The record is a 145-nucleotide RNA sequence from Paenibacillus sp. FSL R7-0331, which matches "c-di-AMP riboswitch aptamer (ydaO/yuaA leader)" in Rfam. Taxonomically the source falls in Paenibacillus (Bacteria, Bacillati, Bacilli, Paenibacillaceae).

[Rfam]
RNA sequence: ACUUUAACCACGCUUAAUUUCCAGCAUUUACUGUCUGGAAAGCGGGGGAACCAGUCAAUUGGGGCGAAUCAUUGAGCUAUGCAAUGUAGGGUACCAUCUUACCCGAGUCCGUCAGCUAACCUCGUCAGUAGUGGAUGGGUCUGCU
Numbered sequence: 001a002c003u004u005u006a007a008c009c010a011c012g013c014u015u016a017a018u019u020u021c022c023a024g025c026a027u028u029u030a031c032u033g034u035c036u037g038g039a040a041a042g043c044g045g046g047g048g049a050a051c052c053a054g055u056c057a058a059u060u061g062g063g064g065c066g067a068a069u070c071a072u073u074g075a076g077c078u079a080u081g082c083a084a085u086g087u088a089g090g091g092u093a094c095c096a097u098c099u100u101a102c103c104c105g106a107g108u109c110c111g112u113c114a115g116c117u118a119a120c121c122u123c124g125u126c127a128g129u130a131g132u133g134g135a136u137g138g139g140u141c142u143g144c145u
Base pairs, nucleotide, nucleotide: 012129013128014127018041019040020039021038022037023036024035042125043124044123045122046121047120052061053060062110063109064108070086071085072084073083089104090103091102092101